A member of the RNA family "mir-132 microRNA precursor family" from Astyanax mexicanus, 88 nucleotides long.
A search with the family's covariance model found it, with a score of 69 bits.
On this family, see Chen et al., Genes Dev 2005: "The developmental miRNA profiles of zebrafish as determined by small RNA cloning".
RNA sequence: GUGCAUCAUGACCUUGGCUCUAGACUGCUUACUGCUUAUAGAGUCGAACAGCACAGUAACAGUCUACAGUCAUGGCUACUGAAGUCUG
Numbered sequence: 001g002u003g004c005a006u007c008a009u010g011a012c013c014u015u016g017g018c019u020c021u022a023g024a025c026u027g028c029u030u031a032c033u034g035c036u037u038a039u040a041g042a043g044u045c046g047a048a049c050a051g052c053a054c055a056g057u058a059a060c061a062g063u064c065u066a067c068a069g070u071c072a073u074g075g076c077u078a079c080u081g082a083a084g085u086c087u088g
Base pairs, nucleotide, nucleotide: 012075013074015072016071017070018069023064024063025062026061027060029059030058031057032056033055